[Rfam]
The record is an 88-nucleotide RNA from Pangasianodon hypophthalmus, which matches "let-7 microRNA precursor family" in Rfam. The organism belongs to Pangasianodon, within Eukaryota.
RNA sequence: CCUAGCUGAGGUAGUAGUUUGUGCUGUUGGAUGGGAUGUGAGAUUGCCCGCUUAUGGAGGUGACUGCGCAAGCUACUGCCUUGCUAGU
Numbered sequence: 001c002c003u004a005g006c007u008g009a010g011g012u013a014g015u016a017g018u019u020u021g022u023g024c025u026g027u028u029g030g031a032u033g034g035g036a037u038g039u040g041a042g043a044u045u046g047c048c049c050g051c052u053u054a055u056g057g058a059g060g061u062g063a064c065u066g067c068g069c070a071a072g073c074u075a076c077u078g079c080c081u082u083g084c085u086a087g088u
Stems, first nucleotide, its partner, number of pairs: 002087005008082017026064002032050004052059002
Notes
From the family's description: This family represents the microRNAs (miRNA) let-7 and mir-98. let-7 was identified from a study of developmental timing in C. elegans, and was later shown to be part of a much larger class of non-coding RNAs termed miRNAs. Pairs were carried over by alignment from the consensus structure, which was predicted with RNAalifold.